[Rfam]
Shown here is a 71-nucleotide sequence from Granulicella pectinivorans, a member of the family "Fluoride riboswitch aptamer (crcB RNA motif)". The family's consensus secondary structure is taken from published work.
RNA sequence: CACAAUCCUGGCGAUGGGGUUCGCCUACGAUGCCCGGUCGAAUGGCCGGCGCUGAUGACUCCUACAUCCAA
Numbered sequence: 001c002a003c004a005a006u007c008c009u010g011g012c013g014a015u016g017g018g019g020u021u022c023g024c025c026u027a028c029g030a031u032g033c034c035c036g037g038u039c040g041a042a043u044g045g046c047c048g049g050c051g052c053u054g055a056u057g058a059c060u061c062c063u064a065c066a067u068c069c070a071a
Stems, first nucleotide, its partner, number of pairs: 010025004016062006045052002